[Rfam]
RNA sequence: GUGAUUGGUAGAGGAGCGGACGUGAAGAGUACAGUUGCCGAGGGGGUUGAGCCCCUGUGAAACAGCUGGAAAGGAACGGUCGCCGAAGUGCAAAAAGCAACUCAAAUGCUUUUUCACUGGAGCUGUGCUGAAUAAGUACAGAGCUGUCAUGCAACGAAGGUUGUGUGGAGAACUAUCUCACCG
Numbered sequence: 001g002u003g004a005u006u007g008g009u010a011g012a013g014g015a016g017c018g019g020a021c022g023u024g025a026a027g028a029g030u031a032c033a034g035u036u037g038c039c040g041a042g043g044g045g046g047u048u049g050a051g052c053c054c055c056u057g058u059g060a061a062a063c064a065g066c067u068g069g070a071a072a073g074g075a076a077c078g079g080u081c082g083c084c085g086a087a088g089u090g091c092a093a094a095a096a097g098c099a100a101c102u103c104a105a106a107u108g109c110u111u112u113u114u115c116a117c118u119g120g121a122g123c124u125g126u127g128c129u130g131a132a133u134a135a136g137u138a139c140a141g142a143g144c145u146g147u148c149a150u151g152c153a154a155c156g157a158a159g160g161u162u163g164u165g166u167g168g169a170g171a172a173c174u175a176u177c178u179c180a181c182c183g
Stems, first nucleotide, its partner, number of pairs: 007177005016083004021078003032068006087118004092114008119145002123141007147168007
Dot-bracket structure: ......(((((....((((.(((........((((((.........................)))))).......))).))))...((((.((((((((.......))))))))))))((..(((((((.....)))))))..)).(((((((........)))))))....)))))......
The record is a 183-nucleotide RNA from Alteribacter keqinensis, which matches "Lysine riboswitch aptamer" in Rfam. The organism belongs to Alteribacter, within Bacteria. From the family's description: Riboswitches are metabolite binding domains within certain messenger RNAs that serve as precision sensors for their corresponding targets. Allosteric rearrangement of mRNA structure is mediated by ligand binding, and this results in modulation of gene expression.